[Rfam]
RNA: Purine riboswitch aptamer
Organism: Paenibacillus ferrarius
RNA sequence: AUUGCUAAAUAAAUUCCAUACCGUAUAACCUCAAUGAUAUGGUUUGAGGGUCUCUACCAGGAACCGUAAAAUCCUGAUUACGAAGAAAGCGUGUAUUCUG
Numbered sequence: 001a002u003u004g005c006u007a008a009a010u011a012a013a014u015u016c017c018a019u020a021c022c023g024u025a026u027a028a029c030c031u032c033a034a035u036g037a038u039a040u041g042g043u044u045u046g047a048g049g050g051u052c053u054c055u056a057c058c059a060g061g062a063a064c065c066g067u068a069a070a071a072u073c074c075u076g077a078u079u080a081c082g083a084a085g086a087a088a089g090c091g092u093g094u095a096u097u098c099u100g
Stems, first nucleotide, its partner, number of pairs: 019085001022082004029049006058076005